Overview:
A member of the RNA family "Betaproteobacteria toxic small RNA" from Zoogloea dura, 67 nucleotides long. Rfam's curators write: Overexpression in amino aid rich medium attenuates growth, suggesting role in repressing amino acid intake and metabolism.
[Rfam]
RNA sequence: UGUCUCCUCCACCCUCCUCCUUUGGUGUGGAUUAAGCCUAGGCCCCAGUGUGCCUAGGCUUUUUUUU
Numbered sequence: 001u002g003u004c005u006c007c008u009c010c011a012c013c014c015u016c017c018u019c020c021u022u023u024g025g026u027g028u029g030g031a032u033u034a035a036g037c038c039u040a041g042g043c044c045c046c047a048g049u050g051u052g053c054c055u056a057g058g059c060u061u062u063u064u065u066u067u
Stems, first nucleotide, its partner, number of pairs: 008031005013025002035060008
Dot-bracket structure: .......(((((((.........)).)))))...((((((((..........)))))))).......